[Rfam]
RNA: FMN riboswitch aptamer (RFN element)
RNA sequence: AAGGAUCUUCGGGGGAGGGUGUAAGUCCCGACCGGCGGUGACCGCUGCAUAAGUGCAGGGUGAAGCCCGCGACUCCUUUGCCGUUUUUUUGACAAAGGACUGAUUUGGUGAAAUUCCAAAGCCGACGGUAUAGUCCGGAUGGUAGAAGAUCGGU
Numbered sequence: 001a002a003g004g005a006u007c008u009u010c011g012g013g014g015g016a017g018g019g020u021g022u023a024a025g026u027c028c029c030g031a032c033c034g035g036c037g038g039u040g041a042c043c044g045c046u047g048c049a050u051a052a053g054u055g056c057a058g059g060g061u062g063a064a065g066c067c068c069g070c071g072a073c074u075c076c077u078u079u080g081c082c083g084u085u086u087u088u089u090u091g092a093c094a095a096a097g098g099a100c101u102g103a104u105u106u107g108g109u110g111a112a113a114u115u116c117c118a119a120a121g122c123c124g125a126c127g128g129u130a131u132a133g134u135c136c137g138g139a140u141g142g143u144a145g146a147a148g149a150u151c152g153g154u
Stems, first nucleotide, its partner, number of pairs: 004151007017029003031134002033124002035070004065122002074099005104120005126137003